[Rfam]
Nucleotides: 070
Base pairs, nucleotide, nucleotide: 001069002068003067004066
Number, partner (000 for none) and nucleotide at each position: 001069u002068u003067u004066u005000a006000a007000u008000g009000a010000u011000g012000a013000g014000a015000a016000a017000a018000a019000c020000a021000g022000a023000c024000c025000u026000g027000a028000u029000u030000u031000g032000a033000a034000a035000a036000a037000u038000a039000a040000u041000u042000u043000g044000a045000g046000a047000a048000u049000a050000a051000u052000u053000a054000u055000a056000a057000c058000c059000c060000u061000c062000c063000c064000u065000g066004a067003a068002a069001a070000a
The record is a 70-nucleotide RNA from Plasmodium falciparum, which matches "small nucleolar RNA snoR25" in Rfam. The literature on the family includes a 2007 paper in RNA by Chakrabarti et al., "Structural RNAs of known and unknown function identified in malaria parasites by comparative genomics and RNA analysis". The organism belongs to Plasmodium falciparum, within Eukaryota. It is one of the family's seed sequences. Rfam classes the family as a C/D-box small nucleolar RNA. Its family is annotated with nucleolus and RNA processing in the Gene Ontology.